[Rfam]
RNA sequence: CAUCGUUCUCAGGGCGGGGCGAAAUUCCCCACCGGCGGUAAGCAGGCUCGCCUGCAAGCCCGCGAGCGCCCCUGCCACCCGGCGGGGGGUCAGCAGAUCUGGUGCAACUCCAGAGCCGACGGUCACAGUCCGGAUGGAAGAGAACGGGA
Numbered sequence: 001c002a003u004c005g006u007u008c009u010c011a012g013g014g015c016g017g018g019g020c021g022a023a024a025u026u027c028c029c030c031a032c033c034g035g036c037g038g039u040a041a042g043c044a045g046g047c048u049c050g051c052c053u054g055c056a057a058g059c060c061c062g063c064g065a066g067c068g069c070c071c072c073u074g075c076c077a078c079c080c081g082g083c084g085g086g087g088g089g090u091c092a093g094c095a096g097a098u099c100u101g102g103u104g105c106a107a108c109u110c111c112a113g114a115g116c117c118g119a120c121g122g123u124c125a126c127a128g129u130c131c132g133g134a135u136g137g138a139a140g141a142g143a144a145c146g147g148g149a
Stems, first nucleotide, its partner, number of pairs: 003147008017029003031129002033118002035063004058116002066094002098114005120132003
FMN riboswitch aptamer (RFN element): a 149-nucleotide sequence from Notoacmeibacter marinus.
The base pairs follow the family's consensus structure, which is taken from published work.
The RFN element is a highly conserved domain that is found frequently in the 5'-untranslated regions of prokaryotic mRNAs that encode for flavin mononucleotide (FMN) biosynthesis and transport proteins.